Overview:
A member of the RNA family "U12 minor spliceosomal RNA" from Neocallimastix californiae, 188 nucleotides long. On this family, see Tarn and Steitz, Trends Biochem Sci 1997: "Pre-mRNA splicing: the discovery of a new spliceosome doubles the challenge". The pairing is the family consensus, mapped onto this sequence.
[Rfam]
RNA sequence: UUGCCUCAAAUUAAUGAGUAAGGAUAAUAACUUCAUUGGGUGAUGCCAAUGAUAAUUAUAAAAAAAUUUUUUCUUAAAAUUUUUUUAUAAUUAAAUUAAUUUUAUAUAUUUUUGAAGGGUAAAGGCUGACCUAUGGGUGGGAUGCUUUAUUCUCUUCAUAAAGCGACCUGCCGUUGUUGUUGGUCUCC
Numbered sequence: 001u002u003g004c005c006u007c008a009a010a011u012u013a014a015u016g017a018g019u020a021a022g023g024a025u026a027a028u029a030a031c032u033u034c035a036u037u038g039g040g041u042g043a044u045g046c047c048a049a050u051g052a053u054a055a056u057u058a059u060a061a062a063a064a065a066a067u068u069u070u071u072u073c074u075u076a077a078a079a080u081u082u083u084u085u086u087a088u089a090a091u092u093a094a095a096u097u098a099a100u101u102u103u104a105u106a107u108a109u110u111u112u113u114g115a116a117g118g119g120u121a122a123a124g125g126c127u128g129a130c131c132u133a134u135g136g137g138u139g140g141g142a143u144g145c146u147u148u149a150u151u152c153u154c155u156u157c158a159u160a161a162a163g164c165g166a167c168c169u170g171c172c173g174u175u176g177u178u179g180u181u182g183g184u185c186u187c188c
Stems, first nucleotide, its partner, number of pairs: 004023003008019001033052007054101005119188001121186001124185007133174002137171005146162005